[Rfam]
RNA sequence: UAGAUCGAGAGGCGCUGCAACGGGCUCAGGCCCGCCACGCUCGGUCUGAACCGUGUAGCAAGGGCGCCUCCCACAA
Numbered sequence: 001u002a003g004a005u006c007g008a009g010a011g012g013c014g015c016u017g018c019a020a021c022g023g024g025c026u027c028a029g030g031c032c033c034g035c036c037a038c039g040c041u042c043g044g045u046c047u048g049a050a051c052c053g054u055g056u057a058g059c060a061a062g063g064g065c066g067c068c069u070c071c072c073a074c075a076a
Base pairs, nucleotide, nucleotide: 002047003046004045005044006043007042008041021034022033023032024031025030
RNA: SAH (S-adenosyl-L-homocysteine) riboswitch aptamer
Organism: Streptosporangium album